[Rfam]
RNA sequence: UCCCCGCUUCACCUCCCUGAGCGGGUGCCUUGAUGUGUGACAGCAAAAAGGCUUUUGAACCUCGGCUGCGGUCGAGGUUUUUUUU
Numbered sequence: 001u002c003c004c005c006g007c008u009u010c011a012c013c014u015c016c017c018u019g020a021g022c023g024g025g026u027g028c029c030u031u032g033a034u035g036u037g038u039g040a041c042a043g044c045a046a047a048a049a050g051g052c053u054u055u056u057g058a059a060c061c062u063c064g065g066c067u068g069c070g071g072u073c074g075a076g077g078u079u080u081u082u083u084u085u
Stems, first nucleotide, its partner, number of pairs: 003025006027052005059078008
RNA: Burkholderia RNA 7 (anti-hemB)
Organism: Limnohabitans radicicola